RNA: Burkholderia sRNA Bp1_Cand684_SIPHT
Organism: Paraburkholderia steynii
RNA sequence: AGAAAAGUAGGUGCCGCCCCGCACAGGGGCGACGCUUGAAGCUAGAUAACAAAUCGCGGAUGCCAGCGCAAAAGCAAAACAACCAAACCGCGUGCGCAGCAAGCACCAC
Numbered sequence: 001a002g003a004a005a006a007g008u009a010g011g012u013g014c015c016g017c018c019c020c021g022c023a024c025a026g027g028g029g030c031g032a033c034g035c036u037u038g039a040a041g042c043u044a045g046a047u048a049a050c051a052a053a054u055c056g057c058g059g060a061u062g063c064c065a066g067c068g069c070a071a072a073a074g075c076a077a078a079a080c081a082a083c084c085a086a087a088c089c090g091c092g093u094g095c096g097c098a099g100c101a102a103g104c105a106c107c108a109c
Base pairs, nucleotide, nucleotide: 012070013069014068015031016030017029018028019027020026093101094100095099